[Rfam]
RNA sequence: GCAUGGGUUUGGAUUUAUGGCAGGCUCGUCCCCCUGGGCCUCUCAUAGUGUCCCAUGCCAGAGCAAACGCGACCCCGAACCAUUGCCUGGCCUCUGCCAGUAGGCUGCAGGCACUGAAGCGGGUUGCACAGUG
Numbered sequence: 001g002c003a004u005g006g007g008u009u010u011g012g013a014u015u016u017a018u019g020g021c022a023g024g025c026u027c028g029u030c031c032c033c034c035u036g037g038g039c040c041u042c043u044c045a046u047a048g049u050g051u052c053c054c055a056u057g058c059c060a061g062a063g064c065a066a067a068c069g070c071g072a073c074c075c076c077g078a079a080c081c082a083u084u085g086c087c088u089g090g091c092c093u094c095u096g097c098c099a100g101u102a103g104g105c106u107g108c109a110g111g112c113a114c115u116g117a118a119g120c121g122g123g124u125u126g127c128a129c130a131g132u133g
Base pairs, nucleotide, nucleotide: 001058002057003056004055005053006052007051008050015048016047017046018045019044020043022041023040024039025037026036070126071125072124073123074122075121081116082115086111087110088107089106090105091104092103093102
Rfam assigns this 133-nucleotide sequence from Cervus hanglu to the family "Small nucleolar RNA SNORA42/SNORA80 family". Pairs were carried over by alignment from the consensus structure, which was predicted with RNAalifold. The family has 21 seed sequences and 1,535 matches in Rfam 15.1. Gene Ontology terms of the family: nucleolus and RNA processing. A reference for the family is Schattner et al. (2006), "A computational screen for mammalian pseudouridylation guide H/ACA RNAs", RNA. Rfam describes the family as follows. The members of this family belong to the H/ACA class of snoRNAs that guide the sites of modification of uridines to pseudouridines. Human ACA42 (SNORA42) was cloned from HeLa cells by immunoprecipitation with anti-GAR1 antibody. Its is predicted to guide the pseudouridylation of residues U109 and U572 of 18S rRNA. ACA42 shares the same host gene with ACA26, ACA46, ACA50. This family also includes mammalian snoRNA ACA67 (SNORA80) which was identified by computational screening and its expression in mouse experimentally verified by Northern blot and primer extension analysis.